[Rfam]
Shown here is a 105-nucleotide sequence from Oryza glumipatula, a member of the family "Small nucleolar RNA R44/J54/Z268 family". Lineage of the source: Eukaryota > Streptophyta > Streptophytina > Poales > Oryza.

RNA sequence: UUAGCAGAUGACGAGAAUCGAGACAAGGCGUCUGCAGCGCGCCCCGAUCCAAGUCGGGGAGUGCGAUAGCAUGAUGACUCCGUCUAGGGGAAUCUCUGAUGCAAG
Dot-bracket structure: .(.(((.............................................................................................))).).
The match comes from Rfam's covariance-model search (52 bits). Rfam classes the family as a C/D-box small nucleolar RNA. Clan: SNORD74 clan.